The family of this 86-nucleotide sequence from Aureispira anguillae is "Selenocysteine transfer RNA".

RNA sequence: AGAAAGGCAAGCCAAUUGGUGGUGGCCACAGUCUUGAAAACUGUUCGGAGUUAAUGACUCGUGUGGGUUCGACUCCCACCCUUUCU
Numbered sequence: 001a002g003a004a005a006g007g008c009a010a011g012c013c014a015a016u017u018g019g020u021g022g023u024g025g026c027c028a029c030a031g032u033c034u035u036g037a038a039a040a041c042u043g044u045u046c047g048g049a050g051u052u053a054a055u056g057a058c059u060c061g062u063g064u065g066g067g068u069u070c071g072a073c074u075c076c077c078a079c080c081c082u083u084u085c086u
Base pairs, nucleotide, nucleotide: 001086002085003084004083005082006081007080011026012025013024014023016021028044029043030042031041032040048060049059050058051057064078065077066076067075
Description:
Its Rfam clan is "tRNA clan".